[Rfam]
RNA sequence: AGGAAUAACAUCAUUGAGUGCAGCGUUGAUGAAUUCUGUUACUUUCUGAGAUGAAUUCGUCAGCGUUGCAUUCAAUCAUGUUUUUU
Numbered sequence: 001a002g003g004a005a006u007a008a009c010a011u012c013a014u015u016g017a018g019u020g021c022a023g024c025g026u027u028g029a030u031g032a033a034u035u036c037u038g039u040u041a042c043u044u045u046c047u048g049a050g051a052u053g054a055a056u057u058c059g060u061c062a063g064c065g066u067u068g069c070a071u072u073c074a075a076u077c078a079u080g081u082u083u084u085u086u
Stems, first nucleotide, its partner, number of pairs: 007082005013076016030059007
Record summary
The family of this 86-nucleotide RNA from Hibiscus syriacus is "MIR397 microRNA precursor family". It scores 72 bits against the family's covariance model. The family has 7 seed sequences and 496 matches in Rfam 15.1. Lineage of the source: Eukaryota > Streptophyta > Embryophyta > Malvaceae > Hibiscus.